RNA: tRNA
RNA sequence: GGGGCAUUGGCGCAGUUGGUAGCGCGCUUCGUUCGCAUCGAAGAGGUCAGGAGUUCGAAUCUCCUAUGCUCCA
Numbered sequence: 001g002g003g004g005c006a007u008u009g010g011c012g013c014a015g016u017u018g019g020u021a022g023c024g025c026g027c028u029u030c031g032u033u034c035g036c037a038u039c040g041a042a043g044a045g046g047u048c049a050g051g052a053g054u055u056c057g058a059a060u061c062u063c064c065u066a067u068g069c070u071c072c073a
Stems, first nucleotide, its partner, number of pairs: 001072007010025004027043005049065005